[Rfam]
The record is a 114-nucleotide RNA from Niabella ginsenosidivorans, which matches "Group II catalytic intron D1-D4-2" in Rfam. About the family: Group II introns are found in rRNA, tRNA and mRNA of organelles in fungi, plants and protists, and also in mRNA in bacteria. Rfam 15.1 lists 1,231 matches to the family in 625 species. The match comes from Rfam's covariance-model search (91 bits). The base pairs follow the family's consensus structure.
RNA sequence: GAGAGGGCCUCUCGUUUACGCUAUACAGGUAGAGUAAACAAACCACAACAUGCUGCGAUAAUCAAAAGUUAUGGUAGUGAGCGAUGUUGGAAAAGGCUGCUAAAGCAGUCAGGU
Numbered sequence: 001g002a003g004a005g006g007g008c009c010u011c012u013c014g015u016u017u018a019c020g021c022u023a024u025a026c027a028g029g030u031a032g033a034g035u036a037a038a039c040a041a042a043c044c045a046c047a048a049c050a051u052g053c054u055g056c057g058a059u060a061a062u063c064a065a066a067a068g069u070u071a072u073g074g075u076a077g078u079g080a081g082c083g084a085u086g087u088u089g090g091a092a093a094a095g096g097c098u099g100c101u102a103a104a105g106c107a108g109u110c111a112g113g114u
Stems, first nucleotide, its partner, number of pairs: 001011003014039006021032004044113001046089006052078002055075002059071004095110006